Rfam assigns this 111-nucleotide RNA from Paenibacillus cellulosilyticus to the family "epsC RNA". Rfam 15.1 lists 450 matches to the family in 334 species. The family's consensus secondary structure is taken from published work. The organism belongs to Paenibacillus, within Bacteria. Rfam classes the family as a cis-regulatory element. It scores 105 bits against the family's covariance model.
RNA sequence: AGGUAAUGUCUACUGAACCUUUAUCACUGUAGACACUCGGUCACGCUGUGGGUCAAUUGACCUUAGACGUACAUCGUCGAGGGUGUGAUGUGAGGUCGGGUUCGAUGCCCG
Numbered sequence: 001a002g003g004u005a006a007u008g009u010c011u012a013c014u015g016a017a018c019c020u021u022u023a024u025c026a027c028u029g030u031a032g033a034c035a036c037u038c039g040g041u042c043a044c045g046c047u048g049u050g051g052g053u054c055a056a057u058u059g060a061c062c063u064u065a066g067a068c069g070u071a072c073a074u075c076g077u078c079g080a081g082g083g084u085g086u087g088a089u090g091u092g093a094g095g096u097c098g099g100g101u102u103c104g105a106u107g108c109c110c111g
Base pairs, nucleotide, nucleotide: 001020002019003018004017007035008034009033010032011031012030013029036094037093038092039091040089041088042087043086044085045084046083047082050063051062052061053060054059066078067077068076069075097111098110099109100108101107